[Rfam]
RNA sequence: CCUCCGCACUCCCCGCACAGGAGAGCGGAUCGAGGCCACGGCGUUCUCUGCCCUGACGACGCCCGAAGCCUCUUCUGGUCGGUGCCACCCGACCGCGGGGACCGCACACCCCGUCGGCCGAGGCAUCGACGGCAGCUCCGGGCUGCGGUGCUGGAGAGGUUGAGGGUCCUCUCCCGGCAC
Numbered sequence: 001c002c003u004c005c006g007c008a009c010u011c012c013c014c015g016c017a018c019a020g021g022a023g024a025g026c027g028g029a030u031c032g033a034g035g036c037c038a039c040g041g042c043g044u045u046c047u048c049u050g051c052c053c054u055g056a057c058g059a060c061g062c063c064c065g066a067a068g069c070c071u072c073u074u075c076u077g078g079u080c081g082g083u084g085c086c087a088c089c090c091g092a093c094c095g096c097g098g099g100g101a102c103c104g105c106a107c108a109c110c111c112c113g114u115c116g117g118c119c120g121a122g123g124c125a126u127c128g129a130c131g132g133c134a135g136c137u138c139c140g141g142g143c144u145g146c147g148g149u150g151c152u153g154g155a156g157a158g159g160u161u162g163a164g165g166g167u168c169c170u171c172u173c174c175c176g177g178c179a180c
Stems, first nucleotide, its partner, number of pairs: 003029004009023004032072005039065003043060002045056002079129006086122001135149003139145002153174007
The record is a 180-nucleotide RNA sequence from Streptomyces sp. DvalAA-14, which matches "Streptomyces sRNA scr5239" in Rfam. Lineage of the source: Bacteria > Bacillati > Actinomycetes > Streptomycetaceae > Streptomyces. The base pairs follow the family's consensus structure, which is taken from published work. It is annotated as a small RNA.